[Rfam]
Notes
This 81-nucleotide sequence from Cicer arietinum belongs to the Rfam family "Small nucleolar RNA R12". Rfam describes the family as follows. snoR12 is a C/D box small nucleolar RNA, which acts as a methylation guide for 25S ribosomal RNA in plants. snoR12 has been alternatively named snoZ44 in Arabidopsis and snoZ131 in rice. A reference for the family is Chen et al. (2003), "The high diversity of snoRNAs in plants: identification and comparative study of 120 snoRNA genes from Oryza sativa", Nucleic Acids Res. By type it is a C/D-box small nucleolar RNA. Its family is annotated with RNA processing and nucleolus in the Gene Ontology. NCBI's taxonomy places the organism under Eukaryota, Viridiplantae, Fabaceae, Cicereae, Cicer.
RNA sequence: UGUUGAAUGAUGAAAAAAAAUCAAUCGGAUUCCCAUUGAUAUUUUUAUAGAUGAGAUUACAACCAGCUACUUCUGACAACA
Numbered sequence: 001u002g003u004u005g006a007a008u009g010a011u012g013a014a015a016a017a018a019a020a021u022c023a024a025u026c027g028g029a030u031u032c033c034c035a036u037u038g039a040u041a042u043u044u045u046u047a048u049a050g051a052u053g054a055g056a057u058u059a060c061a062a063c064c065a066g067c068u069a070c071u072u073c074u075g076a077c078a079a080c081a
Base pairs, nucleotide, nucleotide: 001081002080003079004078005077